The record is an 85-nucleotide RNA from Paenalicyclobacillus macrosporangiidus, which matches "c-di-GMP-I riboswitch aptamer" in Rfam. The family's consensus secondary structure is taken from published work. A search with the family's covariance model found it, with a score of 74 bits. The organism belongs to Paenalicyclobacillus, within Bacteria.

[Rfam]
RNA sequence: AGACACAACGGGCAAACCUCGGGAAACCGGGGGACGCAAAGCCAUGGGCCUACGGCGUUCAAGCUAUGGUUGCCAGGUUGCUAAU
Numbered sequence: 001a002g003a004c005a006c007a008a009c010g011g012g013c014a015a016a017c018c019u020c021g022g023g024a025a026a027c028c029g030g031g032g033g034a035c036g037c038a039a040a041g042c043c044a045u046g047g048g049c050c051u052a053c054g055g056c057g058u059u060c061a062a063g064c065u066a067u068g069g070u071u072g073c074c075a076g077g078u079u080g081c082u083a084a085u
Stems, first nucleotide, its partner, number of pairs: 012037002017032006040079004045075003048070003055064002